[Rfam]
RNA: Small nucleolar RNA snoR97
RNA sequence: UUGAUAACAUGGCAGUGGAGGCUUACAAAACUCAUAGAGCUAUGUGCUGUCAUCACCUUCAUCUCUGCUUUACUCUUAAGAGAUCGGAGUUGAAUAACAACACGACAUAC
Numbered sequence: 001u002u003g004a005u006a007a008c009a010u011g012g013c014a015g016u017g018g019a020g021g022c023u024u025a026c027a028a029a030a031c032u033c034a035u036a037g038a039g040c041u042a043u044g045u046g047c048u049g050u051c052a053u054c055a056c057c058u059u060c061a062u063c064u065c066u067g068c069u070u071u072a073c074u075c076u077u078a079a080g081a082g083a084u085c086g087g088a089g090u091u092g093a094a095u096a097a098c099a100a101c102a103c104g105a106c107a108u109a110c
Stems, first nucleotide, its partner, number of pairs: 043104004048099002055091001057089004062083004
Dot-bracket structure: ..........................................((((.((.....(.((((.((((..............))))..)))).)......)).))))......